[Rfam]
RNA sequence: UGGUCAUUACCGAGGCUUUAAGAAUACAGUUUCUCAUUUGCUGUGGACAUGACCAUAAAAAACCACCACCACUAAGUUUGCGGGGUGCUGCUUUGCUAGCAAUUGACCUUUUGGGAACAUUU
Numbered sequence: 001u002g003g004u005c006a007u008u009a010c011c012g013a014g015g016c017u018u019u020a021a022g023a024a025u026a027c028a029g030u031u032u033c034u035c036a037u038u039u040g041c042u043g044u045g046g047a048c049a050u051g052a053c054c055a056u057a058a059a060a061a062a063c064c065a066c067c068a069c070c071a072c073u074a075a076g077u078u079u080g081c082g083g084g085g086u087g088c089u090g091c092u093u094u095g096c097u098a099g100c101a102a103u104u105g106a107c108c109u110u111u112u113g114g115g116a117a118c119a120u121u122u
Base pairs, nucleotide, nucleotide: 003053004052005051006050007049010046011045012044027040028039029038069114070113071112076107077106078105086101087100088099
RNA: Small nucleolar RNA SNORA32
Organism: Nannospalax galili